[Rfam]
The record is a 183-nucleotide sequence from Vibrio antiquarius, which matches "Lysine riboswitch aptamer" in Rfam. NCBI's taxonomy places the organism under Bacteria, Pseudomonadati, Pseudomonadota, Vibrionales, Vibrio.
RNA sequence: UGUUGCCGUAGAGGCGCGGUCUCGAAGAGUAGCUAUUAUUGGGGUGAUGCCAAUGAAUAAUAGUGGAAGGCGAAGAUUGCCGAAGUAAGUAACUCAUCAAAGUUACUUGCUGGGGUUGUAUCUGAAAGGAACAACACUGCCAUAGUAUAUAUUCACAUUAAACUAUGGAGCGCUACUGUAGGG
Numbered sequence: 001u002g003u004u005g006c007c008g009u010a011g012a013g014g015c016g017c018g019g020u021c022u023c024g025a026a027g028a029g030u031a032g033c034u035a036u037u038a039u040u041g042g043g044g045u046g047a048u049g050c051c052a053a054u055g056a057a058u059a060a061u062a063g064u065g066g067a068a069g070g071c072g073a074a075g076a077u078u079g080c081c082g083a084a085g086u087a088a089g090u091a092a093c094u095c096a097u098c099a100a101a102g103u104u105a106c107u108u109g110c111u112g113g114g115g116u117u118g119u120a121u122c123u124g125a126a127a128g129g130a131a132c133a134a135c136a137c138u139g140c141c142a143u144a145g146u147a148u149a150u151a152u153u154c155a156c157a158u159u160a161a162a163c164u165a166u167g168g169a170g171c172g173c174u175a176c177u178g179u180a181g182g183g
Stems, first nucleotide, its partner, number of pairs: 006178001008176004016080006022073003032064008084111011112138002115135005121129002140168007